Overview: Bacterial small signal recognition particle RNA: a 98-nucleotide RNA sequence from Thermobifida fusca. NCBI's taxonomy places the organism under Bacteria, Bacillati, Streptosporangiales, Thermobifida, Thermobifida fusca. It is one of the family's seed sequences. The family's RNA type in Rfam is non-coding RNA gene. A reference for the family is Rosenblad et al. (2003), "SRPDB: Signal Recognition Particle Database", Nucleic Acids Res.
RNA sequence: UCAGGCCCCUCGUGCGGCGUCAUCCUACGAACCUCCCCAGGGCCGGAAGGCAGCAAGGAUAAGUAGGCUCUGACGGGUGCGCGGGGGGUCCUUCGCGU
Numbered sequence: 001u002c003a004g005g006c007c008c009c010u011c012g013u014g015c016g017g018c019g020u021c022a023u024c025c026u027a028c029g030a031a032c033c034u035c036c037c038c039a040g041g042g043c044c045g046g047a048a049g050g051c052a053g054c055a056a057g058g059a060u061a062a063g064u065a066g067g068c069u070c071u072g073a074c075g076g077g078u079g080c081g082c083g084g085g086g087g088g089u090c091c092u093u094c095g096c097g098u
Stems, first nucleotide, its partner, number of pairs: 004090011015077001018075005024067005034059003042051003